ZMP/ZTP riboswitch aptamer (pfl RNA motif): a 79-nucleotide RNA from Bifidobacterium tsurumiense. For this family Rfam cites "Recognition of the bacterial alarmone ZMP through long-distance association of two RNA subdomains" (Jones and Ferre-D'Amare, Nat Struct Mol Biol, 2015).
[Rfam]
RNA sequence: AAGUUGUUAUAUGACUGACGGAAGUGGAUUAACCACAUGGGAGUAUAACCGUAAGAAGCCGACCGUCUGGGCAAAAGAG
Numbered sequence: 001a002a003g004u005u006g007u008u009a010u011a012u013g014a015c016u017g018a019c020g021g022a023a024g025u026g027g028a029u030u031a032a033c034c035a036c037a038u039g040g041g042a043g044u045a046u047a048a049c050c051g052u053a054a055g056a057a058g059c060c061g062a063c064c065g066u067c068u069g070g071g072c073a074a075a076a077g078a079g
Stems, first nucleotide, its partner, number of pairs: 003052002006049007015040002017067005024036004058072003